[Rfam]
RNA sequence: GUUGGGUAUGCCUGAAAUUUUCGCUCAGACCUGUCUUAAUCCCAAGGUGAGCAAAGUUUCAGGUGUAUUCAAUU
Numbered sequence: 001g002u003u004g005g006g007u008a009u010g011c012c013u014g015a016a017a018u019u020u021u022c023g024c025u026c027a028g029a030c031c032u033g034u035c036u037u038a039a040u041c042c043c044a045a046g047g048u049g050a051g052c053a054a055a056g057u058u059u060c061a062g063g064u065g066u067a068u069u070c071a072a073u074u
Stems, first nucleotide, its partner, number of pairs: 002072006009065007017057005024051004030047003
RNA: mir-87 microRNA precursor family
Organism: Mytilus coruscus